[Rfam]
RNA sequence: ACCGCCAUGGAUGGCGGUGGUUCUAAACAGAAUUGAGUUUGAAAACUACCAUAGCUAUAUAAACAGAAGUUUUUAAACUCAUAGGUUUCAUUUUGCCACGGAUGGCAAAAUGAAACCGU
Numbered sequence: 001a002c003c004g005c006c007a008u009g010g011a012u013g014g015c016g017g018u019g020g021u022u023c024u025a026a027a028c029a030g031a032a033u034u035g036a037g038u039u040u041g042a043a044a045a046c047u048a049c050c051a052u053a054g055c056u057a058u059a060u061a062a063a064c065a066g067a068a069g070u071u072u073u074u075a076a077a078c079u080c081a082u083a084g085g086u087u088u089c090a091u092u093u094u095g096c097c098a099c100g101g102a103u104g105g106c107a108a109a110a111u112g113a114a115a116c117c118g119u
Base pairs, nucleotide, nucleotide: 001018002017003016004015005014006013034081035080036079037078038077039076040075041074042073043072044071045070046069047068084117085116086115087114088113089112090111091110092109093108094107095106096105097104
Shown here is a 119-nucleotide RNA sequence from Treponema phagedenis, a member of the family "TD-2 RNA".
A search with the family's covariance model found it, with a score of 52 bits.
The family's RNA type in Rfam is small RNA.